[Rfam]
RNA sequence: GUGCAAUGAUGUAUUUGUCAACACAUCAUUCUGAAAAAAAAAUUAUGUGAUGACUUCUGUGACUGAGCACA
Numbered sequence: 001g002u003g004c005a006a007u008g009a010u011g012u013a014u015u016u017g018u019c020a021a022c023a024c025a026u027c028a029u030u031c032u033g034a035a036a037a038a039a040a041a042a043u044u045a046u047g048u049g050a051u052g053a054c055u056u057c058u059g060u061g062a063c064u065g066a067g068c069a070c071a
Base pairs, nucleotide, nucleotide: 001070002069003068004067

This 71-nucleotide sequence from Cavia porcellus belongs to the Rfam family "Small nucleolar RNA SNORD63". It is annotated as a C/D-box small nucleolar RNA. A search with the family's covariance model found it, with a score of 68 bits. Rfam links the family to the GO terms nucleolus and RNA processing. snoRNA U63 is found in both humans and mice. A reference for the family is Galardi et al. (2002), "Purified box C/D snoRNPs are able to reproduce site-specific 2'-O-methylation of target RNA in vitro", Mol Cell Biol. The family's consensus secondary structure was predicted with PFOLD. Taxonomically the source falls in Cavia (Eukaryota, Opisthokonta, Metazoa, Eutheria).